The record is a 112-nucleotide sequence from Capsicum baccatum, which matches "mir-399 microRNA precursor family" in Rfam. The organism belongs to Capsicum, within Eukaryota. Rfam links the family to the GO terms RISC complex and miRNA-mediated post-transcriptional gene silencing. The match comes from Rfam's covariance-model search (58 bits). Rfam 15.1 lists 2,396 matches to the family in 221 species.
RNA sequence: AGAGAAAUAACAGUGUAAUUCUCCAUUGGCAAAUGAGUAUAUGUGCAAACCAUAUAUAUUUUGGAUGACAUUAUAUUAUCUUUGCCAAAGGAGAAUGCCCUGUUAUUCUUCU
Numbered sequence: 001a002g003a004g005a006a007a008u009a010a011c012a013g014u015g016u017a018a019u020u021c022u023c024c025a026u027u028g029g030c031a032a033a034u035g036a037g038u039a040u041a042u043g044u045g046c047a048a049a050c051c052a053u054a055u056a057u058a059u060u061u062u063g064g065a066u067g068a069c070a071u072u073a074u075a076u077u078a079u080c081u082u083u084g085c086c087a088a089a090g091g092a093g094a095a096u097g098c099c100c101u102g103u104u105a106u107u108c109u110u111c112u
Stems, first nucleotide, its partner, number of pairs: 006107004011102003015098003019095001021093004027087007035079001